[Rfam]
RNA sequence: GUGGCGGGAAGAUGGCUUCGAGGGGUUGACCCACAGGUCCUUUGUGGCCUUACAGUACCCCGGGAAGGUCUGAGCGAGUCCAAACCUCCCUAAAAGGUGGUCCCCUGAGAGGGGGCGGGCUCAAUGGCCCGGGGCCCGAACAGGAAAACGUGCCCGUCGAAAGACGGUUGGGAAUCGGGUCUGACCAGCUGAAGCUGAGUGCGAUAGCCAUGUCAACCAGAUAACACAAUUCAGACUAUUCUCUCGCCAC
Numbered sequence: 001g002u003g004g005c006g007g008g009a010a011g012a013u014g015g016c017u018u019c020g021a022g023g024g025g026u027u028g029a030c031c032c033a034c035a036g037g038u039c040c041u042u043u044g045u046g047g048c049c050u051u052a053c054a055g056u057a058c059c060c061c062g063g064g065a066a067g068g069u070c071u072g073a074g075c076g077a078g079u080c081c082a083a084a085c086c087u088c089c090c091u092a093a094a095a096g097g098u099g100g101u102c103c104c105c106u107g108a109g110a111g112g113g114g115g116c117g118g119g120c121u122c123a124a125u126g127g128c129c130c131g132g133g134g135c136c137c138g139a140a141c142a143g144g145a146a147a148a149c150g151u152g153c154c155c156g157u158c159g160a161a162a163g164a165c166g167g168u169u170g171g172g173a174a175u176c177g178g179g180u181c182u183g184a185c186c187a188g189c190u191g192a193a194g195c196u197g198a199g200u201g202c203g204a205u206a207g208c209c210a211u212g213u214c215a216a217c218c219a220g221a222u223a224a225c226a227c228a229a230u231u232c233a234g235a236c237u238a239u240u241c242u243c244u245c246g247c248c249a250c
Base pairs, nucleotide, nucleotide: 001250002249003248004247007244008243009242015209017207018206022061023060024059025058026057035050036049037048038047039046070234071233072232073231074230078185079184080183101115102114103113104112105111116131117130118129119128120127121126132182133181134180135179136178137177138176154167155166156165213221214220